[Rfam]
RNA sequence: UAUCGGCGCUAGGGGUGCCCACGCGGCUGAGAAGCGUUGCUACGCUAACCCUUGAAACUCGAUCUGGGUAAUACCAGCGGGAGGAAGUGCUCGACAUCGAAU
Number, nucleotide and partner (000 for none) at each position: 001u000002a000003u000004c000005g000006g090007c089008g088009c087010u086011a052012g051013g050014g049015g000016u000017g027018c026019c025020c000021a000022c000023g000024c000025g019026g018027c017028u000029g000030a000031g000032a000033a000034g045035c044036g043037u042038u000039g000040c000041u000042a037043c036044g035045c034046u000047a000048a000049c014050c013051c012052u011053u000054g000055a000056a000057a000058c083059u082060c081061g000062a000063u000064c077065u076066g075067g074068g000069u000070a000071a000072u000073a000074c067075c066076a065077g064078c000079g000080g000081g060082a059083g058084g000085a000086a010087g009088u008089g007090c006091u000092c000093g000094a000095c000096a000097u000098c000099g000100a000101a000102u000
Rfam assigns this 102-nucleotide RNA sequence from Paenalicyclobacillus mengziensis to the family "TPP riboswitch aptamer (THI element)". The organism belongs to Paenalicyclobacillus, within Bacteria. It scores 69 bits against the family's covariance model. The base pairs follow the family's consensus structure, which is taken from published work.